[Rfam]
RNA sequence: AACCUAAUAAAAAUACCCCUUCAUAUAUCCUCGGCAAUACGGGCUGAGAGUCUCUACCGGAACACCACAAAUGUUCUGACUAUGAAGGCAGAACGUCAUUUG
Numbered sequence: 001a002a003c004c005u006a007a008u009a010a011a012a013a014u015a016c017c018c019c020u021u022c023a024u025a026u027a028u029c030c031u032c033g034g035c036a037a038u039a040c041g042g043g044c045u046g047a048g049a050g051u052c053u054c055u056a057c058c059g060g061a062a063c064a065c066c067a068c069a070a071a072u073g074u075u076c077u078g079a080c081u082a083u084g085a086a087g088g089c090a091g092a093a094c095g096u097c098a099u100u101u102g
Base pairs, nucleotide, nucleotide: 018088019087020086021085022084023083024082025081030048031047032046033045034044035043058078059077060076061075062074063073064072
This 102-nucleotide sequence from Pontibacillus litoralis belongs to the Rfam family "Purine riboswitch aptamer". Riboswitches are metabolite binding domains within certain messenger RNAs that serve as precision sensors for their corresponding targets. The organism belongs to Pontibacillus litoralis, within Bacteria. It scores 82 bits against the family's covariance model. The family's consensus secondary structure is taken from published work.